[Rfam]
RNA sequence: UCACUCUGGUUUCUCUUCAUAACACAAGUCUUUUGCUUUUUACUAAAGACUUCCUUGGAGGGGAACGCCGAUGAGUUGAAACUAUUUUUGGUGGUCUUUGCUGUUUGGCCA
Dot-bracket structure: ..((((..(((((((((((......((((((((...........))))))))...)))))))))))......))))................((((..........)))).